[Rfam]
Shown here is a 94-nucleotide RNA sequence from Sphaerulina musiva, a member of the family "Small nucleolar RNA Z13/snr52".
Rfam 15.1 lists 1,203 matches to the family in 866 species.
Pairs were carried over by alignment from the consensus structure, which was predicted with PFOLD.
The match comes from Rfam's covariance-model search (74 bits).
It is annotated as a C/D-box small nucleolar RNA.
Its family is annotated with RNA processing and nucleolus in the Gene Ontology.
The organism belongs to Sphaerulina musiva, within Eukaryota.
RNA sequence: ACUAUAAUGAUGAAGCAUUUGGAUAAAAAACAAAACACCCACCGAGAGCGCAAAACCGUGUGGAUAUCUCCGUUGCCUUCCUUCUGAUCUAUAC
Numbered sequence: 001a002c003u004a005u006a007a008u009g010a011u012g013a014a015g016c017a018u019u020u021g022g023a024u025a026a027a028a029a030a031c032a033a034a035a036c037a038c039c040c041a042c043c044g045a046g047a048g049c050g051c052a053a054a055a056c057c058g059u060g061u062g063g064a065u066a067u068c069u070c071c072g073u074u075g076c077c078u079u080c081c082u083u084c085u086g087a088u089c090u091a092u093a094c
Stems, first nucleotide, its partner, number of pairs: 001092001020072004